[Rfam]
RNA sequence: ACAAUGAUACUUCCCUAAGGGGCUGGCGGAGUACCCGGCAGAGGUGGAAUUCCUAUGA
Numbered sequence: 001a002c003a004a005u006g007a008u009a010c011u012u013c014c015c016u017a018a019g020g021g022g023c024u025g026g027c028g029g030a031g032u033a034c035c036c037g038g039c040a041g042a043g044g045u046g047g048a049a050u051u052c053c054u055a056u057g058a
Base pairs, nucleotide, nucleotide: 012055013022014021015020023041024040025039027037028036029035042054043053044052